[Rfam]
RNA sequence: GCAUGAUACUUACUAUGUAGUUGCUUUAAAUGGGUAACUUUAAAUCAGGAGAAUUGCAAGGACAUCUAUAUAAAUGGUUUAGAUAACUUGCAGCCUACAUUAGACCAGUAUAAAAUUUUAGUCUAAAAAGGUUCAACGACUAAUCGGUGAGUUACACUAACAAUAAUCCGGACACGAGUACCUGACGUAUAAUAUUUGUAUGAAGAUAUAGUCUACUUUGUAUAUUACUAUACAG
Numbered sequence: 001g002c003a004u005g006a007u008a009c010u011u012a013c014u015a016u017g018u019a020g021u022u023g024c025u026u027u028a029a030a031u032g033g034g035u036a037a038c039u040u041u042a043a044a045u046c047a048g049g050a051g052a053a054u055u056g057c058a059a060g061g062a063c064a065u066c067u068a069u070a071u072a073a074a075u076g077g078u079u080u081a082g083a084u085a086a087c088u089u090g091c092a093g094c095c096u097a098c099a100u101u102a103g104a105c106c107a108g109u110a111u112a113a114a115a116u117u118u119u120a121g122u123c124u125a126a127a128a129a130g131g132u133u134c135a136a137c138g139a140c141u142a143a144u145c146g147g148u149g150a151g152u153u154a155c156a157c158u159a160a161c162a163a164u165a166a167u168c169c170g171g172a173c174a175c176g177a178g179u180a181c182c183u184g185a186c187g188u189a190u191a192a193u194a195u196u197u198g199u200a201u202g203a204a205g206a207u208a209u210a211g212u213c214u215a216c217u218u219u220g221u222a223u224a225u226u227a228c229u230a231u232a233c234a235g
Base pairs, nucleotide, nucleotide: 005025007023008022010020011019012018013017029041030040045185046184047183048182051179055092056091057090058089059088060087065083066082067081068080093132094131099124107122136214138213139212140211141210142209188200189199190198191197192196220233221232222231223230224229
About this RNA
Shown here is a 235-nucleotide RNA sequence from Tremella mesenterica, a member of the family "Group I catalytic intron". The organism belongs to Tremella, within Eukaryota. Rfam describes the family as follows. Group I catalytic introns are large self-splicing ribozymes. For this family Rfam cites "Crystal structure of a group I ribozyme domain: principles of RNA packing" (Cate et al., Science, 1996).